Glycine riboswitch aptamer: a 114-nucleotide RNA from Kutzneria sp. 744.
RNA sequence: ACGCCUCUGGAAAGAGGACGCGGGGCCUCCUCGCGUCCCGCCGACGGUGCAAGCCCGCGCGUGCGCGGGUGAAGCUCUCAGGUGCCCGUCACGGGCGGGGACAGAGGGGGAGGG
Dot-bracket structure: .(.((((((......(((((((((.....))))))))).(((((..(.(...(((((((....)))))))....).))).)))..................)))))).).....
A search with the family's covariance model found it, with a score of 32 bits.